The record is a 355-nucleotide RNA from Oleiphilus messinensis, which matches "Bacterial RNase P class A" in Rfam. It is annotated as a ribozyme. Ribonuclease P (RNase P) is a ubiquitous endoribonuclease, found in archaea, bacteria and eukarya as well as chloroplasts and mitochondria. The base pairs follow the family's consensus structure, which is taken from published work. The organism belongs to Oleiphilus, within Bacteria.
RNA sequence: UGAGUUCGCCAGACAGUCGCCGCUUAAGCAUUGUUUAAGGGGAGGAAAGUCCGGGCUCCAUAGGGUAGAGUGCCAGGUAACGCCUGGGGGGCGCGAGCCUACGGAAAGUGCAGCAGAAAGUAAACCGCCUAAGUCAGUUCUCUGGCCGGUAAGGGUGAAAUGGUGCGGUAAGAGCGCACCGCGCAGCUGGCAACAGUCUGUGGCGAUGGUAAACCCCACUCGGAGCAAAACCAAAUAGGAAUCCUUCGGUGUGACCCGCACUGGAUUCGGGUAGGUUGCUUGAGGUAUGUGGUGACGCAUAUCCUAGAUGAAUGACUGUCCAAGACAGAACCCGGCUUAUCGGCGAACUUUUUAU
Numbered sequence: 001u002g003a004g005u006u007c008g009c010c011a012g013a014c015a016g017u018c019g020c021c022g023c024u025u026a027a028g029c030a031u032u033g034u035u036u037a038a039g040g041g042g043a044g045g046a047a048a049g050u051c052c053g054g055g056c057u058c059c060a061u062a063g064g065g066u067a068g069a070g071u072g073c074c075a076g077g078u079a080a081c082g083c084c085u086g087g088g089g090g091g092c093g094c095g096a097g098c099c100u101a102c103g104g105a106a107a108g109u110g111c112a113g114c115a116g117a118a119a120g121u122a123a124a125c126c127g128c129c130u131a132a133g134u135c136a137g138u139u140c141u142c143u144g145g146c147c148g149g150u151a152a153g154g155g156u157g158a159a160a161u162g163g164u165g166c167g168g169u170a171a172g173a174g175c176g177c178a179c180c181g182c183g184c185a186g187c188u189g190g191c192a193a194c195a196g197u198c199u200g201u202g203g204c205g206a207u208g209g210u211a212a213a214c215c216c217c218a219c220u221c222g223g224a225g226c227a228a229a230a231c232c233a234a235a236u237a238g239g240a241a242u243c244c245u246u247c248g249g250u251g252u253g254a255c256c257c258g259c260a261c262u263g264g265a266u267u268c269g270g271g272u273a274g275g276u277u278g279c280u281u282g283a284g285g286u287a288u289g290u291g292g293u294g295a296c297g298c299a300u301a302u303c304c305u306a307g308a309u310g311a312a313u314g315a316c317u318g319u320c321c322a323a324g325a326c327a328g329a330a331c332c333c334g335g336c337u338u339a340u341c342g343g344c345g346a347a348c349u350u351u352u353u354a355u
Stems, first nucleotide, its partner, number of pairs: 002350009011340001012320007020042002023039006047338003051335005056225004063257004068221005073087005088102001089100004103216002108214002110210002125154002127150003133146005162180006181204001182202005187196003229277004239268006248262005284303008
Dot-bracket structure: .(((((((((((((((((.((.((((((.....)))))).))....[[[.[[[[[((((...[[[[.((((((((((.....)))))(((((....)))).)((...((((.............(((((...(((((....))))).)))..)).......((((((.......))))))(((((((((....))).))))).)....))..)))))))))))))...((((......((((((...(((((.]]]]))))))))))).....))))......((((((((....))))))))..........)))))))..........]]]]]]]].).))))))))).....